This 157-nucleotide sequence from Paraburkholderia monticola belongs to the Rfam family "Group II catalytic intron D1-D4-7". Lineage of the source: Bacteria > Pseudomonadota > Burkholderiales > Burkholderiaceae > Paraburkholderia. The pairing is the family consensus, mapped onto this sequence. Group II introns are found in rRNA, tRNA and mRNA of organelles in fungi, plants and protists, and also in mRNA in bacteria. The literature on the family includes a 2001 paper in Trends Genet by Bonen and Vogel, "The ins and outs of group II introns". It scores 122 bits against the family's covariance model.
RNA sequence: CCUGUUAUACGACUAGCAGUAGCCUACGAAGACAUGCGUCACUGGUAACGGUGGGGUGUGAAGCUCUUCUGACAAAGUAGCCUCCGGAUGUUCUCGGACAAGUGAUCUCCGUGAGGCGAUCACUUGGAUACUCCUAGCAGCAAAAGGGGUUGAGGAG
Number, nucleotide and partner (000 for none) at each position: 001c000002c019003u018004g017005u016006u015007a014008u000009a000010c000011g000012a000013c000014u007015a006016g005017c004018a003019g002020u000021a000022g000023c000024c000025u000026a000027c000028g069029a068030a067031g066032a065033c060034a059035u058036g057037c056038g000039u054040c053041a052042c051043u050044g049045g000046u000047a000048a000049c044050g043051g042052u041053g040054g039055g000056g037057u036058g035059u034060g033061a000062a000063g000064c000065u032066c031067u030068u029069c028070u000071g000072a000073c000074a000075a000076a000077g000078u000079a000080g000081c000082c000083u098084c097085c096086g095087g094088a000089u000090g000091u000092u000093c000094u087095c086096g085097g084098a083099c126100a125101a124102g123103u000104g000105a000106u000107c000108u000109c116110c115111g000112u000113g000114a000115g110116g109117c000118g000119a000120u000121c000122a000123c102124u101125u100126g099127g000128a000129u000130a150131c149132u148133c147134c146135u145136a000137g000138c000139a000140g000141c000142a000143a000144a000145a135146g134147g133148g132149g131150u130151u000152g000153a000154g000155g000156a000157g000